[Rfam]
Nucleotides: 111
Stems, first nucleotide, its partner, number of pairs: 002110003006106008016096006024088003
Number, partner (000 for none) and nucleotide at each position: 001000u002110u003109u004108g005000a006106g007105g008104g009103g010102a011101a012100u013099g014000u015000u016096g017095u018094c019093u020092g021091g022000a023000u024088c025087g026086g027000g028000g029000a030000c031000g032000c033000u034000u035000g036000u037000u038000u039000u040000c041000a042000u043000u044000c045000c046000a047000u048000c049000g050000u051000u052000g053000u054000u055000g056000a057000a058000a059000u060000g061000g062000a063000u064000u065000g066000a067000g068000g069000u070000u071000u072000u073000g074000c075000u076000g077000c078000c079000u080000g081000u082000g083000u084000c085000g086026u087025c088024g089000g090000a091021c092020c093019a094018g095017g096016c097000u098000u099013c100012a101011u102010u103009c104008c105007c106006c107000c108004c109003a110002a111000u
mir-166 microRNA precursor family: a 111-nucleotide sequence from Hibiscus syriacus. Gene Ontology terms of the family: RISC complex and miRNA-mediated post-transcriptional gene silencing. This family represents the plant microRNA (miRNA) precursor mir-166. The match comes from Rfam's covariance-model search (82 bits). The base pairs follow the family's consensus structure, which was predicted with PFOLD. Taxonomically the source falls in Hibiscus (Eukaryota, Pentapetalae, Malvales, Malvoideae). Rfam 15.1 lists 2,599 matches to the family in 229 species.